[Rfam]
RNA sequence: GUUUGAAAAAGGUAAACCUAGCGAAAGCUGGGGGCACAAAGCCACGGGUCUAAGGUAGUUUACUACUAUGAUCGCCGGGUUGCCGCA
Dot-bracket structure: ...........((...((((((....))))))...))..((((.((((((....((((....))))...)))..)))))))......
Numbered sequence: 001g002u003u004u005g006a007a008a009a010a011g012g013u014a015a016a017c018c019u020a021g022c023g024a025a026a027g028c029u030g031g032g033g034g035c036a037c038a039a040a041g042c043c044a045c046g047g048g049u050c051u052a053a054g055g056u057a058g059u060u061u062a063c064u065a066c067u068a069u070g071a072u073c074g075c076c077g078g079g080u081u082g083c084c085g086c087a
Stems, first nucleotide, its partner, number of pairs: 012037002017032006040081004045077003048072003055066004

This 87-nucleotide sequence from Clostridiales bacterium PH28_bin88 belongs to the Rfam family "c-di-GMP-I riboswitch aptamer". It scores 88 bits against the family's covariance model. The base pairs follow the family's consensus structure, which is taken from published work.